[Rfam]
A member of the RNA family "Ribosomal S15 leader" from Pasteurellaceae bacterium RH1A, 120 nucleotides long. Its Rfam clan is "Ribosomal Protein S15 Leader clan". Rfam classes the family as a cis-regulatory leader. Its family is annotated with regulation of translation, ncRNA-mediated in the Gene Ontology. The match comes from Rfam's covariance-model search (103 bits). For this family Rfam cites "Pseudoknot and translational control in the expression of the S15 ribosomal protein" (Benard et al., Biochimie, 1996). Rfam describes the family as follows. The E. coli Ribosomal S15 gene 5' UTR can form two alternative structures. One that is a series of three hairpins, The other includes a pseudoknot. This structure causes translational regulation of the S15 protein. The alignment of this family contains only the final two hairpins which are conserved in other species, and also includes the complete region that forms the alternate structures. The family's consensus secondary structure is taken from published work.
RNA sequence: UGUCGUAGCUGAAUUAGAGAUCGGCUAUUGAUGAAUAUUAACCUAUCCUUUUAGGAGUAAAAAAUGUCUCUAAGCACAGAAAAAAAAGCAGCUAUCGUUGCUGAUUUCGGCCGUGAUGCC
Numbered sequence: 001u002g003u004c005g006u007a008g009c010u011g012a013a014u015u016a017g018a019g020a021u022c023g024g025c026u027a028u029u030g031a032u033g034a035a036u037a038u039u040a041a042c043c044u045a046u047c048c049u050u051u052u053a054g055g056a057g058u059a060a061a062a063a064a065u066g067u068c069u070c071u072a073a074g075c076a077c078a079g080a081a082a083a084a085a086a087a088g089c090a091g092c093u094a095u096c097g098u099u100g101c102u103g104a105u106u107u108c109g110g111c112c113g114u115g116a117u118g119c120c
Base pairs, nucleotide, nucleotide: 007026008025009024010023011022012021051074054071055070056069057068